[Rfam]
RNA sequence: GACGGGCUGCGCGGUGCGCCAGGAGUAACAUAUUCUCGGGGCCUUAGUCAUUCCUAGGGAGCUGUCCCUGCCUUGGCCCGUGGGCCUGGGGCACACGGCGCCCACCUACUCUGUAGGUUCCCGGGAUCGACAUCUCCAUCGGCCGGGUGGCUCGUCA
Numbered sequence: 001g002a003c004g005g006g007c008u009g010c011g012c013g014g015u016g017c018g019c020c021a022g023g024a025g026u027a028a029c030a031u032a033u034u035c036u037c038g039g040g041g042c043c044u045u046a047g048u049c050a051u052u053c054c055u056a057g058g059g060a061g062c063u064g065u066c067c068c069u070g071c072c073u074u075g076g077c078c079c080g081u082g083g084g085c086c087u088g089g090g091g092c093a094c095a096c097g098g099c100g101c102c103c104a105c106c107u108a109c110u111c112u113g114u115a116g117g118u119u120c121c122c123g124g125g126a127u128c129g130a131c132a133u134c135u136c137c138a139u140c141g142g143c144c145g146g147g148u149g150g151c152u153c154g155u156c157a
Base pairs, nucleotide, nucleotide: 002155003154004153005152006151007150008149009148010147012145013144014143015142017141018140033126034125035124036123038121039120040119041118042117043116057103058102059101061099062098063097064096065095070092071091072090073089074088075087076086078084
Record summary
A member of the RNA family "6S / SsrS RNA" from Aurantimonas coralicida, 157 nucleotides long. Rfam's curators write: E. coli 6S RNA was the first non coding RNA to be sequenced, but its function was unknown until recently. It consists of 184 nucleotides that fold into an extended hairpin structure with a large single-stranded internal bulge. Taxonomically the source falls in Aurantimonas coralicida (Bacteria, Pseudomonadota, Aurantimonadaceae, Aurantimonas).